[Rfam]
RNA sequence: UGCGAUGAGUCGAGAAAAACCAGAUAACGAUUUAGUUAUUUCGCUGCGGCGACAAGUGGUUAUAUCGAAUGGGGCACGAUAACUACAGGAUUGUAGUGUGUUUGACUACCUCUAUAUUGUGGAAUUU
Number, nucleotide and partner (000 for none) at each position: 001u000002g000003c000004g000005a000006u000007g000008a000009g000010u000011c000012g000013a000014g000015a000016a000017a000018a061019a060020c059021c058022a057023g040024a039025u038026a037027a036028c035029g000030a000031u000032u000033u000034a000035g028036u027037u026038a025039u024040u023041u052042c051043g050044c049045u000046g000047c000048g000049g044050c043051g042052a041053c000054a000055a000056g000057u022058g021059g020060u019061u018062a000063u000064a000065u000066c000067g000068a000069a000070u000071g000072g000073g102074g101075c100076a099077c098078g000079a000080u000081a000082a097083c096084u095085a094086c093087a000088g000089g000090a000091u000092u000093g086094u085095a084096g083097u082098g077099u076100g075101u074102u073103u000104g000105a000106c000107u000108a000109c000110c000111u000112c000113u000114a127115u000116a125117u124118u123119g000120u000121g000122g000123a118124a117125u116126u000127u114
The record is a 127-nucleotide RNA from Ligilactobacillus ubinensis, which matches "Enterococcus sRNA 68 (Lacto-3 RNA)" in Rfam.
NCBI's taxonomy places the organism under Bacteria, Bacillati, Bacilli, Lactobacillaceae, Ligilactobacillus.
The base pairs follow the family's consensus structure, which is taken from published work.
It scores 96 bits against the family's covariance model.